Description:
The family of this 78-nucleotide RNA sequence from Clytia hemisphaerica is "rpsL sRNA". A search with the family's covariance model found it, with a score of 42 bits. NCBI's taxonomy places the organism under Eukaryota, Opisthokonta, Eumetazoa, Hydrozoa, Clytia. Rfam classes the family as a small RNA. The family has 6 seed sequences and 52 matches in Rfam 15.1.
RNA sequence: UUGGUGAUUAUUUUAAGCUGGAAAACAGUGCAUGCUUCAGCAUUGAGGAAAACAUCUCCUUUUUUCACUAAAAAAUAA
Numbered sequence: 001u002u003g004g005u006g007a008u009u010a011u012u013u014u015a016a017g018c019u020g021g022a023a024a025a026c027a028g029u030g031c032a033u034g035c036u037u038c039a040g041c042a043u044u045g046a047g048g049a050a051a052a053c054a055u056c057u058c059c060u061u062u063u064u065u066c067a068c069u070a071a072a073a074a075a076u077a078a
Stems, first nucleotide, its partner, number of pairs: 012073003016069002020066006026045006